Shown here is an 83-nucleotide RNA from Ensifer meliloti, a member of the family "Group II catalytic intron D1-D4-1". It scores 47 bits against the family's covariance model. Rfam describes the family as follows. Group II introns are found in rRNA, tRNA and mRNA of organelles in fungi, plants and protists, and also in mRNA in bacteria. NCBI's taxonomy places the organism under Bacteria, Pseudomonadati, Pseudomonadota, Rhizobiaceae, Ensifer meliloti.
RNA sequence: GCCUUGCGCCUGAAAGGGCGACGGUGUCGAGCCGGAGCGAGAAGUCAGCAGAGGUCGUAGUAGCCGUAUCCGCGGCGAAGGAC
Numbered sequence: 001g002c003c004u005u006g007c008g009c010c011u012g013a014a015a016g017g018g019c020g021a022c023g024g025u026g027u028c029g030a031g032c033c034g035g036a037g038c039g040a041g042a043a044g045u046c047a048g049c050a051g052a053g054g055u056c057g058u059a060g061u062a063g064c065c066g067u068a069u070c071c072g073c074g075g076c077g078a079a080g081g082a083c
Base pairs, nucleotide, nucleotide: 001025002024004023007020008019009018010017011016045052046051054083055082056081063076064075065074066073067072